[Rfam]
Small nucleolar RNA SNORA17: a 134-nucleotide RNA from Thinocorus orbignyianus. By type it is an H/ACA-box small nucleolar RNA. snoRNA ACA 17 belongs to the H/ACA family of snoRNAs and is predicted to guide pseudouridylation of the 28S rRNA at positions U4659 and U4598. It shares the same host gene together with ACA43. NB This family has a high threshold value to exclude a large number of closely related sequences that do not appear to have conserved H and ACA boxes, and may be pseudogenes. Pairs were carried over by alignment from the consensus structure, which was predicted with RNAalifold. Rfam 15.1 lists 5,784 matches to the family in 673 species. Gene Ontology terms of the family: RNA processing and nucleolus. A search with the family's covariance model found it, with a score of 60 bits. Clan: SNORA17 clan. For this family Rfam cites "Mapping to nucleotide resolution of pseudouridine residues in large subunit ribosomal RNAs from representative eukaryotes, prokaryotes, archaebacteria, mitochondria and chloroplasts" (Ofengand and Bakin, J Mol Biol, 1997).
RNA sequence: CCUGCCCCAGCUCGUGUUGCAGAUGUGGCUGCAGUGCCAUGUUUGUGUCAUUGGGUGGCAGAAAGGAAAAGGCCAAGUCUUUGCUAGUGCUCUGGAAUCUGUGGGCACUCAGGAAUGAUGAGCAACCUGACAAU
Number, nucleotide and partner (000 for none) at each position: 001c000002c061003u060004g059005c058006c057007c055008c054009a000010g052011c000012u000013c000014g048015u047016g000017u000018u000019g046020c045021a044022g043023a000024u041025g040026u039027g038028g037029c036030u000031g000032c000033a000034g000035u000036g029037c028038c027039a026040u025041g024042u000043u022044u021045g020046u019047g015048u014049c000050a000051u000052u010053g000054g008055g007056u000057g006058g005059c004060a003061g002062a000063a000064a000065g000066g000067a000068a000069a000070a128071g127072g126073c000074c000075a000076a000077g000078u000079c000080u000081u118082u117083g116084c000085u114086a000087g110088u107089g106090c105091u104092c103093u000094g000095g000096a000097a000098u000099c000100u000101g000102u000103g092104g091105g090106c089107a088108c000109u000110c087111a000112g000113g000114a085115a000116u083117g082118a081119u000120g000121a000122g000123c000124a000125a000126c072127c071128u070129g000130a000131c000132a000133a000134u000